[Rfam]
RNA sequence: UGAAUGGUAAGAGAGCUUUCUUUAGUCCACUCAUGGGUGACAAUAAGAUUUCAAUUAGCUGCUGACUCAUUCAUCCAAAUGUUGAGUAAAAUAUAUAGAAACAUAUACUCAUCAAAUGAGUGAAUGAUGCGGGAGACAAAUUGAAUCUUAAGUUUCCUAUACUUGGACUGAAGGGAGCUCCCUUUUCUUCCUUU
Numbered sequence: 001u002g003a004a005u006g007g008u009a010a011g012a013g014a015g016c017u018u019u020c021u022u023u024a025g026u027c028c029a030c031u032c033a034u035g036g037g038u039g040a041c042a043a044u045a046a047g048a049u050u051u052c053a054a055u056u057a058g059c060u061g062c063u064g065a066c067u068c069a070u071u072c073a074u075c076c077a078a079a080u081g082u083u084g085a086g087u088a089a090a091a092u093a094u095a096u097a098g099a100a101a102c103a104u105a106u107a108c109u110c111a112u113c114a115a116a117u118g119a120g121u122g123a124a125u126g127a128u129g130c131g132g133g134a135g136a137c138a139a140a141u142u143g144a145a146u147c148u149u150a151a152g153u154u155u156c157c158u159a160u161a162c163u164u165g166g167a168c169u170g171a172a173g174g175g176a177g178c179u180c181c182c183u184u185u186u187c188u189u190c191c192u193u194u
Stems, first nucleotide, its partner, number of pairs: 013180008023170007036157001059135002062132003068126004076118001
The record is a 194-nucleotide RNA sequence, which matches "MIR159 microRNA precursor family" in Rfam. On this family, see Jones-Rhoades and Bartel, Mol Cell 2004: "Computational identification of plant microRNAs and their targets, including a stress-induced miRNA". The base pairs follow the family's consensus structure, which was predicted with WAR.